[Rfam]
Rfam assigns this 155-nucleotide RNA from Populus trichocarpa to the family "MIR2912 microRNA precursor family". Gene Ontology terms of the family: RISC complex and miRNA-mediated post-transcriptional gene silencing. Lineage of the source: Eukaryota > Mesangiospermae > Salicaceae > Saliceae > Populus.
RNA sequence: UCUAACACUCGAGAUAUAGGCUGAAUACUAAAUAGUGUCUGGGCUGCAGGAUAGAUUCUGACUUCUCCGUUGUUGCUACCAUUUGAAUUAAGAAAUAACACUUUUAAAUCUUGGACUCUCAUGAAAGUUUUAGGCCUAUGUCUUAGCUUUCCAUG
Number, nucleotide and partner (000 for none) at each position: 001u000002c000003u153004a000005a000006c000007a149008c146009u145010c000011g144012a143013g142014a141015u140016a139017u138018a137019g136020g135021c133022u132023g131024a130025a129026u000027a128028c127029u126030a000031a000032a000033u000034a000035g122036u121037g120038u000039c000040u000041g000042g118043g117044c000045u115046g000047c000048a112049g111050g110051a109052u108053a000054g105055a104056u000057u000058c000059u100060g099061a000062c000063u097064u000065c000066u000067c000068c092069g000070u000071u000072g088073u087074u086075g000076c000077u000078a000079c000080c000081a000082u000083u000084u000085g000086a074087a073088u072089u000090a000091a000092g068093a000094a000095a000096u000097a063098a000099c060100a059101c000102u000103u000104u055105u054106a000107a000108a052109u051110c050111u049112u048113g000114g000115a045116c000117u043118c042119u000120c037121a036122u035123g000124a000125a000126a029127g028128u027129u025130u024131u023132a022133g021134g000135c020136c019137u018138a017139u016140g015141u014142c013143u012144u011145a009146g008147c000148u000149u007150u000151c000152c000153a003154u000155g000